[Rfam]
RNA sequence: UGUUUGCUGUGAUGACAACUAUUAGGACGGUAUCUGAGUGAGGCAUAUAUCCUCGCAUGAUUAUACCUAAUCUGAGACAAAUGUCUGAGCAAAUU
Number, nucleotide and partner (000 for none) at each position: 001u000002g094003u093004u092005u091006g090007c089008u000009g000010u000011g000012a000013u000014g000015a000016c000017a000018a000019c000020u000021a000022u000023u000024a000025g000026g000027a000028c000029g000030g000031u000032a000033u000034c000035u000036g000037a000038g056039u055040g054041a053042g052043g051044c000045a000046u000047a000048u000049a000050u000051c043052c042053u041054c040055g039056c038057a000058u000059g000060a000061u000062u000063a000064u000065a000066c000067c000068u000069a000070a000071u000072c000073u000074g000075a000076g000077a000078c000079a000080a000081a000082u000083g000084u000085c000086u000087g000088a000089g007090c006091a005092a004093a003094u002095u000
Shown here is a 95-nucleotide RNA from Eragrostis curvula, a member of the family "Small nucleolar RNA Z118/Z121/Z120". Gene Ontology terms of the family: nucleolus and RNA processing. On this family, see Chen et al., Nucleic Acids Res 2003: "The high diversity of snoRNAs in plants: identification and comparative study of 120 snoRNA genes from Oryza sativa". Pairs were carried over by alignment from the consensus structure, which was predicted with PFOLD.